Nematode snoRNA ceN39: a 128-nucleotide RNA sequence from Haemonchus placei. It is annotated as an H/ACA-box small nucleolar RNA. Lineage of the source: Eukaryota > Opisthokonta > Rhabditida > Rhabditina > Haemonchus. The base pairs follow the family's consensus structure, which was predicted with RNAalifold.
[Rfam]
RNA sequence: UUGGCGGAUAGGAACCAGUUAGUGCCUGUGCGUUGAUUGGGCCGAAAACCGCCAAUAUCAUUUGUUCGCGAUUAAGGUCGUAUGUGCGUCUUUUUGAAGCAUGUAUAUCACCAUUGUGGACGACAGCU
Numbered sequence: 001u002u003g004g005c006g007g008a009u010a011g012g013a014a015c016c017a018g019u020u021a022g023u024g025c026c027u028g029u030g031c032g033u034u035g036a037u038u039g040g041g042c043c044g045a046a047a048a049c050c051g052c053c054a055a056u057a058u059c060a061u062u063u064g065u066u067c068g069c070g071a072u073u074a075a076g077g078u079c080g081u082a083u084g085u086g087c088g089u090c091u092u093u094u095u096g097a098a099g100c101a102u103g104u105a106u107a108u109c110a111c112c113a114u115u116g117u118g119g120a121c122g123a124c125a126g127c128u
Stems, first nucleotide, its partner, number of pairs: 003053005011043002015040011065120008076112003080106002083103005089098001